[Rfam]
RNA sequence: CCCCGCAAGCCUCUUAACAAUGCUCAAAUUGCGGGGU
Numbered sequence: 001c002c003c004c005g006c007a008a009g010c011c012u013c014u015u016a017a018c019a020a021u022g023c024u025c026a027a028a029u030u031g032c033g034g035g036g037u
Stems, first nucleotide, its partner, number of pairs: 001036006008024003
RNA: abiF RNA